The family of this 388-nucleotide RNA sequence from Mycoplasmoides genitalium is "transfer-messenger RNA". Taxonomically the source falls in Mycoplasmoides genitalium (Bacteria, Bacillati, Mycoplasmoidales, Mycoplasmoidaceae). From the family's description: Bacterial tmRNA, also known as 10Sa RNA or SsrA, is named for its dual tRNA and mRNA-like properties. The base pairs follow the family's consensus structure, which is taken from published work.

RNA sequence: GGGGAUGUUUUGGGUUUGACAUAAUGCUGAUAGACAAACAGUAGCAUUGGGGUAUGCCCCUUACAGCGCUAGGUUCAAUAACCGACAAAGAAAAUAACGAAGUGUUGGUAGAUCCAAAUUUGAUCAUUAACCAACAAGCAAGUGUUAACUUUGCUUUUGCAUAAGUAGAUACUAAAGCUACAGCUGGUGAAUAGUCAUAGUUUGCUAGCUGUCAUAGUUUAUGACUCGAGGUUAAAUCGUUCAAUUUAACCUUUAAAAAUAGAACUUGUUGUUUCCAUGAUUGUUUUGUGAUCAAUUGGAAACAAGACAAAAAUCCACAAAACUAAAAUGUAGAAGCUGUUUGUUGUGUCCUUUAUGGAAACGGGUUCGAUUCCCGUCAUCUCCACCA
Numbered sequence: 001g002g003g004g005a006u007g008u009u010u011u012g013g014g015u016u017u018g019a020c021a022u023a024a025u026g027c028u029g030a031u032a033g034a035c036a037a038a039c040a041g042u043a044g045c046a047u048u049g050g051g052g053u054a055u056g057c058c059c060c061u062u063a064c065a066g067c068g069c070u071a072g073g074u075u076c077a078a079u080a081a082c083c084g085a086c087a088a089a090g091a092a093a094a095u096a097a098c099g100a101a102g103u104g105u106u107g108g109u110a111g112a113u114c115c116a117a118a119u120u121u122g123a124u125c126a127u128u129a130a131c132c133a134a135c136a137a138g139c140a141a142g143u144g145u146u147a148a149c150u151u152u153g154c155u156u157u158u159g160c161a162u163a164a165g166u167a168g169a170u171a172c173u174a175a176a177g178c179u180a181c182a183g184c185u186g187g188u189g190a191a192u193a194g195u196c197a198u199a200g201u202u203u204g205c206u207a208g209c210u211g212u213c214a215u216a217g218u219u220u221a222u223g224a225c226u227c228g229a230g231g232u233u234a235a236a237u238c239g240u241u242c243a244a245u246u247u248a249a250c251c252u253u254u255a256a257a258a259a260u261a262g263a264a265c266u267u268g269u270u271g272u273u274u275c276c277a278u279g280a281u282u283g284u285u286u287u288g289u290g291a292u293c294a295a296u297u298g299g300a301a302a303c304a305a306g307a308c309a310a311a312a313a314u315c316c317a318c319a320a321a322a323c324u325a326a327a328a329u330g331u332a333g334a335a336g337c338u339g340u341u342u343g344u345u346g347u348g349u350c351c352u353u354u355a356u357g358g359a360a361a362c363g364g365g366u367u368c369g370a371u372u373c374c375c376g377u378c379a380u381c382u383c384c385a386c387c388a
Stems, first nucleotide, its partner, number of pairs: 001384007020357005026351001033345010044331005049062004055068003155169003180212006187205004193226007228253009239265004269305008279293003283323004288318003361377005